A member of the RNA family "mir-284 microRNA precursor family" from Drosophila virilis, 98 nucleotides long. For this family Rfam cites "Computational identification of Drosophila microRNA genes" (Lai et al., Genome Biol, 2003). The organism belongs to Drosophila, within Eukaryota.
RNA sequence: GUUGCAGUUCCUGGAAUUAAGUUGACUGUGUAGCCUGUAAAGGGAAGGCUUGUGCACUGCUUACAAAGUCAGCAACUUGAUUCCAGCAAUUGCGGCCC
Dot-bracket structure: (((((((((.((((((((((((((.(((((.(((........................)))..))....))))))))))))))))).)))))))))..